This 88-nucleotide RNA from Halanaerobium saccharolyticum belongs to the Rfam family "c-di-GMP-I riboswitch aptamer". The match comes from Rfam's covariance-model search (72 bits). Taxonomically the source falls in Halanaerobium saccharolyticum subsp. saccharolyticum (Bacteria, Bacillati, Bacillota, Clostridia).
Nucleotides: 088
Stems, first nucleotide, its partner, number of pairs: 012037002017032006040082004045078003048073003055067001
Number, partner (000 for none) and nucleotide at each position: 001000a002000a003000u004000a005000a006000a007000u008000a009000u010000u011000g012037g013036c014000a015000a016000a017032a018031u019030u020029a021028c022027c023000g024000a025000a026000a027022g028021g029020u030019a031018a032017u033000g034000a035000c036013g037012c038000a039000a040082a041081a042080c043079u044000a045078u046077g047076g048073g049072u050071c051000u052000a053000a054000a055067a056000a057000c058000g059000a060000a061000a062000u063000u064000a065000u066000g067055u068000u069000a070000u071050g072049a073048c074000u075000g076047c077046c078045a079043g080042g081041u082040u083000g084000c085000a086000u087000g088000u